This 554-nucleotide part of an RNA from Archaeoglobus sulfaticallidus belongs to the Rfam family "Archaeal large subunit ribosomal RNA". For this family Rfam cites "Crystal structure of the ribosome at 5.5 A resolution" (Yusupov et al., Science, 2001). The base pairs follow the family's consensus structure, which is taken from published work. The source organism's lineage runs through Archaea, Methanobacteriota, Archaeoglobales, Archaeoglobaceae and Archaeoglobus sulfaticallidus.

RNA sequence: CGAUUAUCCCAGCCGGUGGAUGGCUCGGUUCGGGCGCCGACGAAGGGCGUGCCAAGCUGCGAAAAGCCCCGGGAAGGCGCAGGGUGCCUUUGAACCGGGGAUGCCCGAAUGGGAUAUCCUGUCCCUUCGGGGACGAUCCGUCAAGGAUCGGGAACGCGGGGAAUGGAAGCAUCUGAGUACCCGCAGGAAAAGAAAGCAAACGCGAUGCCGUUAGUAUGGGCGACUGAACACGGCAGAGUCCAAACCGAAUUCCUGGGCGAAAGCUCAGGAAGAUGUGGUGUAGUAGGACUCGGCCCAAUGCCUCUUGGGGGAAACCGAAGUGGCCUGGAACGGCCCGCCUUAGAGGGUGAGAGCCCCGUAGGUGUAACCUCAAAGGCUACGAGGCCGAGUAUCCUGAGUACCGUGGGUUGGAAUUCCCGCGGGAAGCUGGGAGUCAUCUACUCCCAAGACUAAAUACGUCCCGAAUCCGAUAGCGCAAUAGUAGGGUGACCGAAAGCUGAAAAGAACCCCAAGAAGGGGGGUGAAAAGAGCCUGAAAUCGGCUGGGGAUAGUGA
Numbered sequence: 001c002g003a004u005u006a007u008c009c010c011a012g013c014c015g016g017u018g019g020a021u022g023g024c025u026c027g028g029u030u031c032g033g034g035c036g037c038c039g040a041c042g043a044a045g046g047g048c049g050u051g052c053c054a055a056g057c058u059g060c061g062a063a064a065a066g067c068c069c070c071g072g073g074a075a076g077g078c079g080c081a082g083g084g085u086g087c088c089u090u091u092g093a094a095c096c097g098g099g100g101a102u103g104c105c106c107g108a109a110u111g112g113g114a115u116a117u118c119c120u121g122u123c124c125c126u127u128c129g130g131g132g133a134c135g136a137u138c139c140g141u142c143a144a145g146g147a148u149c150g151g152g153a154a155c156g157c158g159g160g161g162a163a164u165g166g167a168a169g170c171a172u173c174u175g176a177g178u179a180c181c182c183g184c185a186g187g188a189a190a191a192g193a194a195a196g197c198a199a200a201c202g203c204g205a206u207g208c209c210g211u212u213a214g215u216a217u218g219g220g221c222g223a224c225u226g227a228a229c230a231c232g233g234c235a236g237a238g239u240c241c242a243a244a245c246c247g248a249a250u251u252c253c254u255g256g257g258c259g260a261a262a263g264c265u266c267a268g269g270a271a272g273a274u275g276u277g278g279u280g281u282a283g284u285a286g287g288a289c290u291c292g293g294c295c296c297a298a299u300g301c302c303u304c305u306u307g308g309g310g311g312a313a314a315c316c317g318a319a320g321u322g323g324c325c326u327g328g329a330a331c332g333g334c335c336c337g338c339c340u341u342a343g344a345g346g347g348u349g350a351g352a353g354c355c356c357c358g359u360a361g362g363u364g365u366a367a368c369c370u371c372a373a374a375g376g377c378u379a380c381g382a383g384g385c386c387g388a389g390u391a392u393c394c395u396g397a398g399u400a401c402c403g404u405g406g407g408u409u410g411g412a413a414u415u416c417c418c419g420c421g422g423g424a425a426g427c428u429g430g431g432a433g434u435c436a437u438c439u440a441c442u443c444c445c446a447a448g449a450c451u452a453a454a455u456a457c458g459u460c461c462c463g464a465a466u467c468c469g470a471u472a473g474c475g476c477a478a479u480a481g482u483a484g485g486g487u488g489a490c491c492g493a494a495a496g497c498u499g500a501a502a503a504g505a506a507c508c509c510c511a512a513g514a515a516g517g518g519g520g521g522u523g524a525a526a527a528g529a530g531c532c533u534g535a536a537a538u539c540g541g542c543u544g545g546g547g548a549u550a551g552u553g554a
Stems, first nucleotide, its partner, number of pairs: 007547010022532001023497002027468002029465006035458002045106003048061003067100006076088003111120003136148004155186001156184005166173002196203002207234005218224001237451004245278003255266004289389004300377002314363003320336001322335004339343001345357003401422007429445005484491002